[Rfam]
RNA sequence: UCAAAACUAGCCACUUGUCAUUUUCUAAUUGGUUCUUAAUGUGUGAAAAUUUAAUAAGAACCAAUUAGAAAAUAACAAGUGACUAGUUUUGG
Numbered sequence: 001u002c003a004a005a006a007c008u009a010g011c012c013a014c015u016u017g018u019c020a021u022u023u024u025c026u027a028a029u030u031g032g033u034u035c036u037u038a039a040u041g042u043g044u045g046a047a048a049a050u051u052u053a054a055u056a057a058g059a060a061c062c063a064a065u066u067a068g069a070a071a072a073u074a075a076c077a078a079g080u081g082a083c084u085a086g087u088u089u090u091g092g
Stems, first nucleotide, its partner, number of pairs: 002091009012081007020073019